RNA sequence: GCGGUGCUGCGGGGUGCGUCAGGACAAAUUGAAUCCCCGGGCCCUUACGAUUCCGAACGGGAGCUGUCCCUGGCCUCGACCGUGGUCUUGGCCAAAACGGCGCCCACCUACUCUGUAGGUGUCCCGGGAUCGAACCGUCCAACGGCCAUCGUGGCUCCGCG
Numbered sequence: 001g002c003g004g005u006g007c008u009g010c011g012g013g014g015u016g017c018g019u020c021a022g023g024a025c026a027a028a029u030u031g032a033a034u035c036c037c038c039g040g041g042c043c044c045u046u047a048c049g050a051u052u053c054c055g056a057a058c059g060g061g062a063g064c065u066g067u068c069c070c071u072g073g074c075c076u077c078g079a080c081c082g083u084g085g086u087c088u089u090g091g092c093c094a095a096a097a098c099g100g101c102g103c104c105c106a107c108c109u110a111c112u113c114u115g116u117a118g119g120u121g122u123c124c125c126g127g128g129a130u131c132g133a134a135c136c137g138u139c140c141a142a143c144g145g146c147c148a149u150c151g152u153g154g155c156u157c158c159g160c161g
Stems, first nucleotide, its partner, number of pairs: 002159003006155006013147003017144003034129004039124003042119002059105003063101005071094005078087001

Rfam assigns this 161-nucleotide RNA sequence from Hansschlegelia zhihuaiae to the family "6S / SsrS RNA". It scores 64 bits against the family's covariance model. Taxonomically the source falls in Hansschlegelia (Bacteria, Pseudomonadati, Alphaproteobacteria, Hyphomicrobiales). On this family, see Wassarman and Storz, Cell 2000: "6S RNA regulates E. coli RNA polymerase activity". By type it is a non-coding RNA gene.